[Rfam]
RNA sequence: CAAACAGCUGUAUAUCCUUUUCGUAUAAUCCCGGGAAUUGGCUUGGGAGUCUCUACAAGGUCACCGUAAUGAUCUGGCUACGAAAAGCGGGAAAAGAGCG
Numbered sequence: 001c002a003a004a005c006a007g008c009u010g011u012a013u014a015u016c017c018u019u020u021u022c023g024u025a026u027a028a029u030c031c032c033g034g035g036a037a038u039u040g041g042c043u044u045g046g047g048a049g050u051c052u053c054u055a056c057a058a059g060g061u062c063a064c065c066g067u068a069a070u071g072a073u074c075u076g077g078c079u080a081c082g083a084a085a086a087g088c089g090g091g092a093a094a095a096g097a098g099c100g
Stems, first nucleotide, its partner, number of pairs: 018086008029048007058075006

Rfam assigns this 100-nucleotide RNA sequence from a Paenibacillaceae bacterium to the family "Purine riboswitch aptamer".
A search with the family's covariance model found it, with a score of 64 bits.
The organism belongs to Paenibacillaceae, within Bacteria.